RNA sequence: CCAGCUUAAUACUGUUUCACUCAUAUAAUAGCGAGAAUAUGGCUCGUAAGUUUCUACCGAUUUACCGUAAAUGAAUCGACUAUGGGUAGCAUUGCUUUAGAA
Number, nucleotide and partner (000 for none) at each position: 001c000002c000003a000004g000005c000006u000007u000008a000009a000010u000011a000012c000013u000014g000015u000016u000017u000018c000019a087020c086021u085022c084023a083024u082025a081026u000027a000028a000029u049030a000031g047032c046033g045034a044035g043036a000037a000038u000039a000040u000041g000042g000043c035044u034045c033046g032047u031048a000049a029050g000051u000052u000053u000054c000055u000056a000057c000058c078059g077060a076061u075062u074063u073064a072065c000066c000067g000068u000069a000070a000071a000072u064073g063074a062075a061076u060077c059078g058079a000080c000081u025082a024083u023084g022085g021086g020087u019088a000089g000090c000091a000092u000093u000094g000095c000096u000097u000098u000099a000100g000101a000102a000
Purine riboswitch aptamer: a 102-nucleotide sequence from Lysinibacillus sphaericus.
Riboswitches are metabolite binding domains within certain messenger RNAs that serve as precision sensors for their corresponding targets.
The literature on the family includes a 2003 paper in Cell by Mandal et al., "Riboswitches Control Fundamental Biochemical Pathways in Bacillus subtilis and Other Bacteria".